[Rfam]
RNA sequence: GGGGAAGAGGGCACAAUACGCCCCCUGCAAAAUAGAGAUUAACCGACGUUUAUUAACGCGUCGGUUAUUUUUUUGC
Numbered sequence: 001g002g003g004g005a006a007g008a009g010g011g012c013a014c015a016a017u018a019c020g021c022c023c024c025c026u027g028c029a030a031a032a033u034a035g036a037g038a039u040u041a042a043c044c045g046a047c048g049u050u051u052a053u054u055a056a057c058g059c060g061u062c063g064g065u066u067a068u069u070u071u072u073u074u075g076c
Stems, first nucleotide, its partner, number of pairs: 011021002040067009
The record is a 76-nucleotide sequence from [Enterobacter] lignolyticus, which matches "Enterobacterial sRNA STnc240" in Rfam. A search with the family's covariance model found it, with a score of 74 bits. Pairs were carried over by alignment from the consensus structure, which was predicted with WAR. Taxonomically the source falls in [Enterobacter] lignolyticus (Bacteria, Pseudomonadati, Enterobacterales, Enterobacteriaceae).